[Rfam]
RNA sequence: GGGGGUGAACGGUUUCGACUUUGGACGUUUGUUCCAAGGGAAGCGGGCCGAGGAUCCAGGGUUAUCUCGUUAACGAUCUCUGGAAACCAAUAACUGCCAACGCUAAGCGCAGUAGCUUCGCUCUCGCCGCCUGACGGCCUGAGCACUUAAAGAAGCGGUCAGCCCGGGGAUGCUUCCGCCCCGGUUCCUGGCCUCAGCUAGGAAGCUUGCUGCACUAGCCCGGUCACGGGGCUGGUGUGGGACUUUUACAGUGACUGAGCCUGUCAGCGACGUGUCUGUGAGAGCGCUGGGGCUGAGAAAACGCCGAACAGACUGCGCCCGGAGAAGCCUUGAAACGACGCUGAAGGACGCGGGUUCGAUUCCCGCCACCUCCACCC
Numbered sequence: 001g002g003g004g005g006u007g008a009a010c011g012g013u014u015u016c017g018a019c020u021u022u023g024g025a026c027g028u029u030u031g032u033u034c035c036a037a038g039g040g041a042a043g044c045g046g047g048c049c050g051a052g053g054a055u056c057c058a059g060g061g062u063u064a065u066c067u068c069g070u071u072a073a074c075g076a077u078c079u080c081u082g083g084a085a086a087c088c089a090a091u092a093a094c095u096g097c098c099a100a101c102g103c104u105a106a107g108c109g110c111a112g113u114a115g116c117u118u119c120g121c122u123c124u125c126g127c128c129g130c131c132u133g134a135c136g137g138c139c140u141g142a143g144c145a146c147u148u149a150a151a152g153a154a155g156c157g158g159u160c161a162g163c164c165c166g167g168g169g170a171u172g173c174u175u176c177c178g179c180c181c182c183g184g185u186u187c188c189u190g191g192c193c194u195c196a197g198c199u200a201g202g203a204a205g206c207u208u209g210c211u212g213c214a215c216u217a218g219c220c221c222g223g224u225c226a227c228g229g230g231g232c233u234g235g236u237g238u239g240g241g242a243c244u245u246u247u248a249c250a251g252u253g254a255c256u257g258a259g260c261c262u263g264u265c266a267g268c269g270a271c272g273u274g275u276c277u278g279u280g281a282g283a284g285c286g287c288u289g290g291g292g293c294u295g296a297g298a299a300a301a302c303g304c305c306g307a308a309c310a311g312a313c314u315g316c317g318c319c320c321g322g323a324g325a326a327g328c329c330u331u332g333a334a335a336c337g338a339c340g341c342u343g344a345a346g347g348a349c350g351c352g353g354g355u356u357c358g359a360u361u362c363c364c365g366c367c368a369c370c371u372c373c374a375c376c377c
Stems, first nucleotide, its partner, number of pairs: 001373007019346006028337001031336003035332005044321005049069005055084007122142002126138004157193006164184006172206006210240009222256006258294005265289003271282001274313004279307001350366005
Annotation
A member of the RNA family "transfer-messenger RNA" from Kribbella turkmenica, 377 nucleotides long. Gene Ontology term of the family: RNA catabolic process. Clan: tRNA clan. From the family's description: Bacterial tmRNA, also known as 10Sa RNA or SsrA, is named for its dual tRNA and mRNA-like properties. It scores 166 bits against the family's covariance model. By type it is a non-coding RNA gene.